Rfam assigns this 131-nucleotide sequence from Streptomyces sp. UH6 to the family "Streptomyces-metH RNA".
Lineage of the source: Bacteria > Bacillati > Actinomycetota > Kitasatosporales > Streptomyces.
It scores 75 bits against the family's covariance model.
[Rfam]
RNA sequence: GGAGUCCGCGAAGUGGACCGGGACGCCGCUCGGUGGACGGCCGGGCUAGGCUGAUCCGGUGCGCACCCCGCGGAAUCGGUCCGCGACAGCGCAAAGCCGACAGCCGUCGCAUCCCAGGGAGCACCUCCAUG
Numbered sequence: 001g002g003a004g005u006c007c008g009c010g011a012a013g014u015g016g017a018c019c020g021g022g023a024c025g026c027c028g029c030u031c032g033g034u035g036g037a038c039g040g041c042c043g044g045g046c047u048a049g050g051c052u053g054a055u056c057c058g059g060u061g062c063g064c065a066c067c068c069c070g071c072g073g074a075a076u077c078g079g080u081c082c083g084c085g086a087c088a089g090c091g092c093a094a095a096g097c098c099g100a101c102a103g104c105c106g107u108c109g110c111a112u113c114c115c116a117g118g119g120a121g122c123a124c125c126u127c128c129a130u131g
Stems, first nucleotide, its partner, number of pairs: 060093004069085006096110002099108003